A member of the RNA family "Pyrobaculum sRNA 204" from Pyrobaculum oguniense, 56 nucleotides long.
RNA sequence: GAGUGCCGCCCGAGAGCCGCUUCUGCGGCCCAGUGAUCGGCGGUUCCCCGGCUAUU
Numbered sequence: 001g002a003g004u005g006c007c008g009c010c011c012g013a014g015a016g017c018c019g020c021u022u023c024u025g026c027g028g029c030c031c032a033g034u035g036a037u038c039g040g041c042g043g044u045u046c047c048c049c050g051g052c053u054a055u056u
Stems, first nucleotide, its partner, number of pairs: 005044006016029005
Rfam's curators write: Non canonical pseudouridylation guide sRNA features. Predicted to target 23S U2023 in Pyrobaculum. Rfam's curators put it in the seed alignment. On this family, see Bernick et al., RNA 2012: "Discovery of Pyrobaculum small RNA families with atypical pseudouridine guide RNA features". By type it is an H/ACA-box small nucleolar RNA. Rfam links the family to the GO term RNA processing. Taxonomically the source falls in Pyrobaculum oguniense (Archaea, Thermoproteati, Thermoprotei, Thermoproteaceae).